[Rfam]
RNA: mir-263 microRNA precursor family
RNA sequence: UUCUUACAGAACUUGGCACUGGAAGAAUUCACAGAUUGUCUUGAAUCGUGGAUCUUUUAAUGCCAUAUUGUGUGGGAA
Numbered sequence: 001u002u003c004u005u006a007c008a009g010a011a012c013u014u015g016g017c018a019c020u021g022g023a024a025g026a027a028u029u030c031a032c033a034g035a036u037u038g039u040c041u042u043g044a045a046u047c048g049u050g051g052a053u054c055u056u057u058u059a060a061u062g063c064c065a066u067a068u069u070g071u072g073u074g075g076g077a078a
Stems, first nucleotide, its partner, number of pairs: 003076006010069001014065005020059003023055001025054002029051004034046001